[Rfam]
RNA sequence: AAGACUAUACUUUUAGGGAUCAUUUCUAUAGUUUGUUUCUAGAGAAAUGUGUUUCUGAAGUGUUCGGUCUCGCUAACCAUGAUGAGGAGUGAUAAUGUUUUCUUCUGAACGCGAAGCGGGUGGUGAAUGCUCUUUAGUUAGAGCUGUUCGCUAUCUUUGAUGAACGUUCUGCUUUUCUUGUGUAAAGUUGGAGGAAGAAGACAUGUUCUGAGUGGU
Number, nucleotide and partner (000 for none) at each position: 001a000002a040003g039004a038005c000006u035007a034008u000009a032010c031011u030012u000013u000014u028015a027016g026017g025018g024019a000020u000021c000022a000023u000024u018025u017026c016027u015028a014029u000030a011031g010032u009033u000034u007035g006036u000037u000038u004039c003040u002041a000042g000043a000044g000045a000046a000047a000048u000049g065050u000051g063052u000053u000054u000055c062056u000057g000058a000059a000060g000061u000062g055063u051064u000065c049066g000067g000068u000069c000070u000071c000072g000073c000074u000075a000076a216077c215078c214079a213080u212081g000082a000083u000084g000085a000086g000087g000088a000089g000090u000091g000092a000093u000094a000095a204096u203097g202098u201099u200100u199101u198102c197103u196104u195105c194106u193107g000108a000109a167110c166111g165112c000113g000114a000115a000116g000117c000118g000119g155120g154121u153122g152123g000124u000125g149126a148127a147128u146129g144130c143131u142132c141133u140134u000135u000136a000137g000138u000139u000140a133141g132142a131143g130144c129145u000146g128147u127148u126149c125150g000151c000152u122153a121154u120155c119156u000157u000158u000159g000160a000161u000162g000163a000164a000165c111166g110167u109168u000169c000170u190171g189172c187173u186174u185175u184176u000177c182178u000179u000180g000181u000182g177183u000184a175185a174186a173187g172188u000189u171190g170191g000192a000193g106194g105195a104196a103197g102198a101199a100200g099201a098202c097203a096204u095205g000206u000207u000208c000209u000210g000211a000212g080213u079214g078215g077216u076
A member of the RNA family "Small nucleolar RNA U3" from Erpetoichthys calabaricus, 216 nucleotides long.
Rfam 15.1 lists 19,072 matches to the family in 1,215 species.
Lineage of the source: Eukaryota > Eumetazoa > Polypteriformes > Polypteridae > Erpetoichthys.
The family's RNA type in Rfam is C/D-box small nucleolar RNA.
A search with the family's covariance model found it, with a score of 161 bits.
Rfam describes the family as follows. Small nucleolar RNAs (snoRNAs) are involved in the processing and modification of rRNA in the nucleolus. There are two main classes of snoRNAs: the box C/D class, and the box H/ACA class. U3 snoRNA is a member of the box C/D class.
Gene Ontology terms of the family: RNA processing and nucleolus.